[Rfam]
RNA sequence: GCCGCGCACAGGCGACCAUUACGUGCCCUUAAACCCUGGUCUACUUGAAUCACAGGGGAUGGAAGUUCCGACAUUAGCAACGGAGAUAUAGUUCACUACCCCACCAGAUGAGUUAUGGGAUAUGCCUUCAUACAACCCAUUUGAACUAUAG
Numbered sequence: 001g002c003c004g005c006g007c008a009c010a011g012g013c014g015a016c017c018a019u020u021a022c023g024u025g026c027c028c029u030u031a032a033a034c035c036c037u038g039g040u041c042u043a044c045u046u047g048a049a050u051c052a053c054a055g056g057g058g059a060u061g062g063a064a065g066u067u068c069c070g071a072c073a074u075u076a077g078c079a080a081c082g083g084a085g086a087u088a089u090a091g092u093u094c095a096c097u098a099c100c101c102c103a104c105c106a107g108a109u110g111a112g113u114u115a116u117g118g119g120a121u122a123u124g125c126c127u128u129c130a131u132a133c134a135a136c137c138c139a140u141u142u143g144a145a146c147u148a149u150a151g
Stems, first nucleotide, its partner, number of pairs: 006026004035056003038051002040048002067084004089148006100107001115140005
RNA: Polynucleobacter-1 RNA